[Rfam]
RNA sequence: GUAGGAGCAUAGGGUCACAGUUGGAGAGCUCUCGUCCUGACCCCUGUCAGAUUUUAUCUCCAUCUGCAAUCCUACU
Numbered sequence: 001g002u003a004g005g006a007g008c009a010u011a012g013g014g015u016c017a018c019a020g021u022u023g024g025a026g027a028g029c030u031c032u033c034g035u036c037c038u039g040a041c042c043c044c045u046g047u048c049a050g051a052u053u054u055u056a057u058c059u060c061c062a063u064c065u066g067c068a069a070u071c072c073u074a075c076u
Stems, first nucleotide, its partner, number of pairs: 012043005019076003023072003026038001028036001048066005

Shown here is a 76-nucleotide RNA from Erpetoichthys calabaricus, a member of the family "Mammalian CPEB3 ribozyme". A search with the family's covariance model found it, with a score of 37 bits. Pairs were carried over by alignment from the consensus structure, which is taken from published work. Lineage of the source: Eukaryota > Opisthokonta > Euteleostomi > Cladistia > Erpetoichthys.